[Rfam]
RNA: Small nucleolar RNA SNORA49
RNA sequence: AUCGGGUAGCCUUGUUUCAGUUCUGUGUAGGACCUGAGCAACACAGGGGUUAAAAGUACCUCUGCCGUACAUGAACGAGCACGCAUCCCUCCCCAGGGAGACUGCCGUCCUGUGGGGCCCACUCGUGGAGCUGACAGC
Numbered sequence: 001a002u003c004g005g006g007u008a009g010c011c012u013u014g015u016u017u018c019a020g021u022u023c024u025g026u027g028u029a030g031g032a033c034c035u036g037a038g039c040a041a042c043a044c045a046g047g048g049g050u051u052a053a054a055a056g057u058a059c060c061u062c063u064g065c066c067g068u069a070c071a072u073g074a075a076c077g078a079g080c081a082c083g084c085a086u087c088c089c090u091c092c093c094c095a096g097g098g099a100g101a102c103u104g105c106c107g108u109c110c111u112g113u114g115g116g117g118c119c120c121a122c123u124c125g126u127g128g129a130g131c132u133g134a135c136a137g138c
Stems, first nucleotide, its partner, number of pairs: 003067003006063001008061002017053001019051004023046005078132003082128001091117005098111001100109002